[Rfam]
RNA sequence: UGUUUGCUGUGAUGAAUCACAAGGACGGUAUCUGAGUAAGGUGGCUCUUGAAAAAGUCCCCUUCCUUGAUUAUACACCCUCAACUGAUCAUUUAUUCUGAGCAAAGU
Numbered sequence: 001u002g003u004u005u006g007c008u009g010u011g012a013u014g015a016a017u018c019a020c021a022a023g024g025a026c027g028g029u030a031u032c033u034g035a036g037u038a039a040g041g042u043g044g045c046u047c048u049u050g051a052a053a054a055a056g057u058c059c060c061c062u063u064c065c066u067u068g069a070u071u072a073u074a075c076a077c078c079c080u081c082a083a084c085u086g087a088u089c090a091u092u093u094a095u096u097c098u099g100a101g102c103a104a105a106g107u
Stems, first nucleotide, its partner, number of pairs: 003105005036065001038063004
The record is a 107-nucleotide RNA from Brachypodium distachyon, which matches "Small nucleolar RNA Z118/Z121/Z120" in Rfam. For this family Rfam cites "The high diversity of snoRNAs in plants: identification and comparative study of 120 snoRNA genes from Oryza sativa" (Chen et al., Nucleic Acids Res, 2003). The family's consensus secondary structure was predicted with PFOLD. It is annotated as a C/D-box small nucleolar RNA. The match comes from Rfam's covariance-model search (77 bits).